[Rfam]
RNA sequence: UAUGGGCUGGAGCCCUUUAAACCUGGCCCAGUCGACACCAGGGGGAUCCCCUAGUGCCGAAUGGGCCAGGUUUAAAGGGCUCCAGCCAUUGA
Numbered sequence: 001u002a003u004g005g006g007c008u009g010g011a012g013c014c015c016u017u018u019a020a021a022c023c024u025g026g027c028c029c030a031g032u033c034g035a036c037a038c039c040a041g042g043g044g045g046a047u048c049c050c051c052u053a054g055u056g057c058c059g060a061a062u063g064g065g066c067c068a069g070g071u072u073u074a075a076a077g078g079g080c081u082c083c084a085g086c087c088a089u090u091g092a
Stems, first nucleotide, its partner, number of pairs: 001092001005087006012080008022070009